[Rfam]
RNA sequence: UUGCAUUCUUAAACCCUCUUGGUGGCUGCUCUCGGUGCCUCCAGGAUAUGAGUGGAUGCGACAGGAACCGCAGGAGUCCAAAGGGCUGCGCCUCCCGGUGGCUCAGCCUUAUUUCAGACCUGCGACAUCU
Numbered sequence: 001u002u003g004c005a006u007u008c009u010u011a012a013a014c015c016c017u018c019u020u021g022g023u024g025g026c027u028g029c030u031c032u033c034g035g036u037g038c039c040u041c042c043a044g045g046a047u048a049u050g051a052g053u054g055g056a057u058g059c060g061a062c063a064g065g066a067a068c069c070g071c072a073g074g075a076g077u078c079c080a081a082a083g084g085g086c087u088g089c090g091c092c093u094c095c096c097g098g099u100g101g102c103u104c105a106g107c108c109u110u111a112u113u114u115c116a117g118a119c120c121u122g123c124g125a126c127a128u129c130u
Stems, first nucleotide, its partner, number of pairs: 003059004008052004017046006024039003063130003069124006082110007090102002094098001
A member of the RNA family "Small nucleolar RNA SNORA14" from Myotis lucifugus, 130 nucleotides long.
From the family's description: ACA14 is a member of the H/ACA class of snoRNA that guide the sites of modification of uridines to pseudouridines.